[Rfam]
RNA sequence: ACAUGCAAGGAUAAAAACGCAACGCAUACCGCAAGAUAUGCCAGAGCCGGUAGGUAGCCCGGCCGUCCUGUUUUACAGGGUAAGUAACCUGCCCCUCCGGGUUGUCCGUUCUUUGCUCAUCAAUC
Numbered sequence: 001a002c003a004u005g006c007a008a009g010g011a012u013a014a015a016a017a018c019g020c021a022a023c024g025c026a027u028a029c030c031g032c033a034a035g036a037u038a039u040g041c042c043a044g045a046g047c048c049g050g051u052a053g054g055u056a057g058c059c060c061g062g063c064c065g066u067c068c069u070g071u072u073u074u075a076c077a078g079g080g081u082a083a084g085u086a087a088c089c090u091g092c093c094c095c096u097c098c099g100g101g102u103u104g105u106c107c108g109u110u111c112u113u114u115g116c117u118c119a120u121c122a123a124u125c
Stems, first nucleotide, its partner, number of pairs: 005116007046063005065081006091102004
This 125-nucleotide RNA from Ruminococcaceae bacterium YRB3002 belongs to the Rfam family "azaaromatic riboswitch aptamer (yjdF RNA)". A search with the family's covariance model found it, with a score of 71 bits. The organism belongs to Oscillospiraceae, within Bacteria.